[Rfam]
Fluoride riboswitch aptamer (crcB RNA motif): a 63-nucleotide RNA from Mesorhizobium sp. Root157. Rfam links the family to the GO terms positive regulation of gene expression and response to fluoride. It scores 59 bits against the family's covariance model. Taxonomically the source falls in Mesorhizobium (Bacteria, Pseudomonadota, Hyphomicrobiales, Phyllobacteriaceae).
RNA sequence: AGCCGCGAUGGGGAUGGAGUUCCCCCGAAACUGCCCGCAAGGGCUGAUGACUCCUACCGCAAC
Numbered sequence: 001a002g003c004c005g006c007g008a009u010g011g012g013g014a015u016g017g018a019g020u021u022c023c024c025c026c027g028a029a030a031c032u033g034c035c036c037g038c039a040a041g042g043g044c045u046g047a048u049g050a051c052u053c054c055u056a057c058c059g060c061a062a063c
Stems, first nucleotide, its partner, number of pairs: 010026004016054006033044004